The family of this 111-nucleotide sequence from Ensete ventricosum is "mir-172 microRNA precursor family".
RNA sequence: UUGUUUGCUGGUGUGGCAUCAUCAAGAUUCACAAACUCACACUAAAGAAGAAGCUCCAGGAAAGUUUCUUUUGAAUUCUGAGAAUCUUGAUGAUGCUGCAUUGGCAAUCAA
Number, nucleotide and partner (000 for none) at each position: 001u000002u000003g000004u000005u000006u000007g000008c000009u000010g102011g101012u100013g099014u098015g097016g096017c095018a094019u093020c092021a091022u090023c089024a088025a087026g086027a085028u084029u083030c082031a000032c080033a079034a000035a000036c000037u000038c000039a000040c000041a000042c000043u000044a000045a000046a000047g000048a000049a000050g000051a000052a000053g000054c000055u000056c000057c000058a000059g000060g000061a000062a000063a000064g000065u000066u000067u000068c000069u000070u000071u000072u000073g000074a000075a000076u000077u000078c000079u033080g032081a000082g030083a029084a028085u027086c026087u025088u024089g023090a022091u021092g020093a019094u018095g017096c016097u015098g014099c013100a012101u011102u010103g000104g000105c000106a000107a000108u000109c000110a000111a000
Rfam describes the family as follows. mir-172 has been experimentally verified in Arabidopsis thaliana. It scores 86 bits against the family's covariance model.